RNA sequence: GUUUAUUUUUGAGUAAGUUGGUCAAUUGGCAAAUAGAAUAUUGACACGCAGGCGAAGUUCUGUGUAUUAGCAUUCUAUUGACCAAUUGACUAAUUUACUCAAAAAUAAAC
Numbered sequence: 001g002u003u004u005a006u007u008u009u010u011g012a013g014u015a016a017g018u019u020g021g022u023c024a025a026u027u028g029g030c031a032a033a034u035a036g037a038a039u040a041u042u043g044a045c046a047c048g049c050a051g052g053c054g055a056a057g058u059u060c061u062g063u064g065u066a067u068u069a070g071c072a073u074u075c076u077a078u079u080g081a082c083c084a085a086u087u088g089a090c091u092a093a094u095u096u097a098c099u100c101a102a103a104a105a106u107a108a109a110c
Base pairs, nucleotide, nucleotide: 001110002109003108006105007104008103009102013098014097015096016095017094018093019092020091021090022089023088024087025086026085027084028083029082032079033078034077035076036075037074038073039072042069043068044067046065047064049062050061

Annotation: This 110-nucleotide RNA sequence from Panax ginseng belongs to the Rfam family "MIR6135 microRNA precursor family". The sequence is in the family's curated seed alignment. NCBI's taxonomy places the organism under Eukaryota, asterids, campanulids, Araliaceae, Panax.